[Rfam]
A member of the RNA family "MIR1120/MIR1122 microRNA precursor family" from Triticum turgidum, 87 nucleotides long. Taxonomically the source falls in Triticum turgidum (Eukaryota, Viridiplantae, Mesangiospermae, Poaceae). The literature on the family includes a 2007 paper in Genome Biol by Yao et al., "Cloning and characterization of microRNAs from wheat (Triticum aestivum L.)". Gene Ontology terms of the family: RISC complex and miRNA-mediated post-transcriptional gene silencing. A search with the family's covariance model found it, with a score of 87 bits.
RNA sequence: AUACUCUCUCCGUCCCAUAAUAUAAGACCAUUUCGCAAGCUAUGUUAGCUUGCAAAAGGGUCUUACAUUAUGGGACGGAGGGAGUAC
Numbered sequence: 001a002u003a004c005u006c007u008c009u010c011c012g013u014c015c016c017a018u019a020a021u022a023u024a025a026g027a028c029c030a031u032u033u034c035g036c037a038a039g040c041u042a043u044g045u046u047a048g049c050u051u052g053c054a055a056a057a058g059g060g061u062c063u064u065a066c067a068u069u070a071u072g073g074g075a076c077g078g079a080g081g082g083a084g085u086a087c
Stems, first nucleotide, its partner, number of pairs: 003085003007081005013075005019069003023065007031057003035053007